[Rfam]
RNA sequence: CGUUUGACACCAGUGUUGUUUUUCCGAAAAUCAAUUAAGAAGGCUUGAUUUUGUGUUGUAUUGACCUUAUCAGCUUUCUUCACUCUUUUUCGAGUUUUUCUUAAUGCACUUUUCGGUUAACAAGUCAACAUCAAUUUCUUUUGUUGUAAAAGGGUAUUUGGAAGGUGGCUUUCUUUUCGGAGAAAGUGUUUAUAGCCUUAUACCUCUACAAUCGGAGAGAUUGAGGUCUGCAGCGUAGAUCCUUCGGGGCUAGAUACACUUGUGCUAAGUUAUAGCUUUUCAUAGACAACUUGUUGACUAUGUUUAGUCAUGUAGCUUACCCGCUUGUGCUAUUUUACCUACGCUUAGGAUGUUGACAAAAUGGUUUUAAACGACCCGUCUUGAAACACGG
Numbered sequence: 001c002g003u004u005u006g007a008c009a010c011c012a013g014u015g016u017u018g019u020u021u022u023u024c025c026g027a028a029a030a031u032c033a034a035u036u037a038a039g040a041a042g043g044c045u046u047g048a049u050u051u052u053g054u055g056u057u058g059u060a061u062u063g064a065c066c067u068u069a070u071c072a073g074c075u076u077u078c079u080u081c082a083c084u085c086u087u088u089u090u091c092g093a094g095u096u097u098u099u100c101u102u103a104a105u106g107c108a109c110u111u112u113u114c115g116g117u118u119a120a121c122a123a124g125u126c127a128a129c130a131u132c133a134a135u136u137u138c139u140u141u142u143g144u145u146g147u148a149a150a151a152g153g154g155u156a157u158u159u160g161g162a163a164g165g166u167g168g169c170u171u172u173c174u175u176u177u178c179g180g181a182g183a184a185a186g187u188g189u190u191u192a193u194a195g196c197c198u199u200a201u202a203c204c205u206c207u208a209c210a211a212u213c214g215g216a217g218a219g220a221u222u223g224a225g226g227u228c229u230g231c232a233g234c235g236u237a238g239a240u241c242c243u244u245c246g247g248g249g250c251u252a253g254a255u256a257c258a259c260u261u262g263u264g265c266u267a268a269g270u271u272a273u274a275g276c277u278u279u280u281c282a283u284a285g286a287c288a289a290c291u292u293g294u295u296g297a298c299u300a301u302g303u304u305u306a307g308u309c310a311u312g313u314a315g316c317u318u319a320c321c322c323g324c325u326u327g328u329g330c331u332a333u334u335u336u337a338c339c340u341a342c343g344c345u346u347a348g349g350a351u352g353u354u355g356a357c358a359a360a361a362u363g364g365u366u367u368u369a370a371a372c373g374a375c376c377c378g379u380c381u382u383g384a385a386a387c388a389c390g391g
Stems, first nucleotide, its partner, number of pairs: 001373007009365004017122001021120002025116001126355007376391004
RNA: Eukaryotic large subunit ribosomal RNA, nucleotides 424 to 814